RNA sequence: GAUGGCAAGUGAUGAAUAGUAUUAAUUCGGAAACUGAUGGACAGUGUUGACUACUAUACUCCGCUUAUUAUCUGAUGCCACA
Numbered sequence: 001g002a003u004g005g006c007a008a009g010u011g012a013u014g015a016a017u018a019g020u021a022u023u024a025a026u027u028c029g030g031a032a033a034c035u036g037a038u039g040g041a042c043a044g045u046g047u048u049g050a051c052u053a054c055u056a057u058a059c060u061c062c063g064c065u066u067a068u069u070a071u072c073u074g075a076u077g078c079c080a081c082a
Base pairs, nucleotide, nucleotide: 003080004079005078006077007076
Dot-bracket structure: ..(((((....................................................................)))))..